Shown here is a 127-nucleotide sequence from Echeneis naucrates, a member of the family "U4atac minor spliceosomal RNA".
The family is grouped with related families in Rfam's "U4 clan".
A reference for the family is Lorkovic et al. (2005), "Evolutionary conservation of minor U12-type spliceosome between plants and humans", RNA.
The family's RNA type in Rfam is spliceosomal small nuclear RNA.
It scores 76 bits against the family's covariance model.

RNA sequence: GCCUUCCUUGUCAUGGGGUGGUUCGGGAGGCUCGAUGAGCGGAAGUGAGAGUCUCCCUGCUGACACCAUCACAACACGUCCGCACCGCCGGACUUCCGGUCCGGGUCCAGGUGCAAUUUUUGGAACC
Dot-bracket structure: .....((((.....))))..((....(((((((.....((....))..)))))))...)).....................((((((((((((.....))))))...).))))).............
Overview:
Gene Ontology terms of the family: pre-mRNA 5'-splice site binding, mRNA 5'-splice site recognition and U4atac snRNP. Rfam's curators write: U4atac is an essential component of the minor U12-type spliceosome complex which is required for removal of the rarer class of eukaryotic introns (AT-AC, U12-type).